mir-399 microRNA precursor family: a 116-nucleotide sequence from Triticum aestivum. A reference for the family is Jones-Rhoades and Bartel (2004), "Computational Identification of Plant MicroRNAs and Their Targets, Including a Stress-Induced miRNA", Mol Cell. Rfam's curators write: mir-399 was identified in both Arabidopsis thaliana and Oryza sativa computationally and was later experimentally verified. mir-399 is thought to target mRNAs coding for a phosphatase transporter. The mature sequence is excised from the 3' arm of the hairpin. A search with the family's covariance model found it, with a score of 65 bits.
Nucleotides: 116
Stems, first nucleotide, its partner, number of pairs: 005112005011106001013104007023095003028090006036082001
Number, partner (000 for none) and nucleotide at each position: 001000a002000g003000c004000u005112g006111a007110a008109u009108u010000g011106c012000u013104g014103g015102g016101c017100a018099g019098g020000g021000u022000c023095u024094c025093c026000u027000u028090u029089g030088g031087c032086a033085g034000a035000u036082g037000u038000u039000g040000c041000u042000g043000c044000a045000g046000u047000c048000c049000g050000a051000c052000a053000c054000c055000g056000g057000u058000g059000u060000u061000u062000g063000u064000c065000g066000g067000g068000g069000g070000u071000u072000g073000a074000c075000g076000g077000c078000c079000a080000g081000u082036c083000u084000a085033c086032u087031g088030c089029c090028a091000a092000a093025g094024g095023a096000a097000a098019u099018u100017u101016g102015c103014c104013c105000c106011g107000g108009a109008a110007u111006u112005c113000a114000u115000c116000u